RNA sequence: UUUGACGGGUUUCGCGAUUUGCGAACAGUCUAACGGAUUGUGUUCGUUGUCGACGAAACCUGCCUUAAG
Numbered sequence: 001u002u003u004g005a006c007g008g009g010u011u012u013c014g015c016g017a018u019u020u021g022c023g024a025a026c027a028g029u030c031u032a033a034c035g036g037a038u039u040g041u042g043u044u045c046g047u048u049g050u051c052g053a054c055g056a057a058a059c060c061u062g063c064c065u066u067a068a069g
Stems, first nucleotide, its partner, number of pairs: 001068002006062009023045005